Background: Rfam assigns this 98-nucleotide RNA from Trichechus manatus to the family "mir-544 microRNA precursor family".
RNA sequence: AUCACCUGGGGAUAUUAUUAAAAUGCAGAUUCUGAUUUAGUAGGUCUGUGAUGGGGCCUGAGAUUCUGCAUUUCUAACAAGAUCCCCGGUGAUGCUGC
Numbered sequence: 001a002u003c004a005c006c007u008g009g010g011g012a013u014a015u016u017a018u019u020a021a022a023a024u025g026c027a028g029a030u031u032c033u034g035a036u037u038u039a040g041u042a043g044g045u046c047u048g049u050g051a052u053g054g055g056g057c058c059u060g061a062g063a064u065u066c067u068g069c070a071u072u073u074c075u076a077a078c079a080a081g082a083u084c085c086c087c088g089g090u091g092a093u094g095c096u097g098c
Base pairs, nucleotide, nucleotide: 003091004090005089009085010084011083015080016079018077019076020075021073022072023071025069026068027067028066029065031063032062033061
On this family, see Chiang et al., Genes Dev 2010: "Mammalian microRNAs: experimental evaluation of novel and previously annotated genes".